[Rfam]
RNA sequence: GAUUACACUGAGUGGCCAGAUGAUUAUGUGUUCAGAGAUCAUAAUUAUCUGGCCACUCAGUGUAUGU
Numbered sequence: 001g002a003u004u005a006c007a008c009u010g011a012g013u014g015g016c017c018a019g020a021u022g023a024u025u026a027u028g029u030g031u032u033c034a035g036a037g038a039u040c041a042u043a044a045u046u047a048u049c050u051g052g053c054c055a056c057u058c059a060g061u062g063u064a065u066g067u
Stems, first nucleotide, its partner, number of pairs: 004064014019049010
About this RNA
This 67-nucleotide sequence from Pipistrellus kuhlii belongs to the Rfam family "mir-9256 microRNA precursor family". Rfam 15.1 lists 31,772 matches to the family in 5 species. Taxonomically the source falls in Pipistrellus (Eukaryota, Bilateria, Craniata, Yangochiroptera). Rfam links the family to the GO terms RISC complex and miRNA-mediated post-transcriptional gene silencing. A search with the family's covariance model found it, with a score of 84 bits.